[Rfam]
RNA sequence: GGUACCGCCGGAUGGAACCGGUCACGAGGGUUGGGGAGCCCGACGACUGGCAGGCAUCCGAGUUCGGAACGGGUUUUAGGGAGCCCGGACUGGACGAUCCGGCGAAGGAG
Numbered sequence: 001g002g003u004a005c006c007g008c009c010g011g012a013u014g015g016a017a018c019c020g021g022u023c024a025c026g027a028g029g030g031u032u033g034g035g036g037a038g039c040c041c042g043a044c045g046a047c048u049g050g051c052a053g054g055c056a057u058c059c060g061a062g063u064u065c066g067g068a069a070c071g072g073g074u075u076u077u078a079g080g081g082a083g084c085c086c087g088g089a090c091u092g093g094a095c096g097a098u099c100c101g102g103c104g105a106a107g108g109a110g
Stems, first nucleotide, its partner, number of pairs: 006104007013060004018054002021051004028041005062095006070087005
The family of this 110-nucleotide sequence is "Actinomyces-1 RNA". The sequence is in the family's curated seed alignment.